[Rfam]
RNA sequence: GAGCAAUUUGGCGAUGGAGUUCGCCAUAACCGUCUUUCUAAAGACUAAUGACUCCUACCAGUGA
Numbered sequence: 001g002a003g004c005a006a007u008u009u010g011g012c013g014a015u016g017g018a019g020u021u022c023g024c025c026a027u028a029a030c031c032g033u034c035u036u037u038c039u040a041a042a043g044a045c046u047a048a049u050g051a052c053u054c055c056u057a058c059c060a061g062u063g064a
Base pairs, nucleotide, nucleotide: 010025011024012023013022016055017054018053019052020051021050032045033044034043035042

The record is a 64-nucleotide RNA from Paenibacillus monticola, which matches "Fluoride riboswitch aptamer (crcB RNA motif)" in Rfam. NCBI's taxonomy places the organism under Bacteria, Bacillati, Caryophanales, Paenibacillaceae, Paenibacillus. A search with the family's covariance model found it, with a score of 56 bits. The family's consensus secondary structure is taken from published work.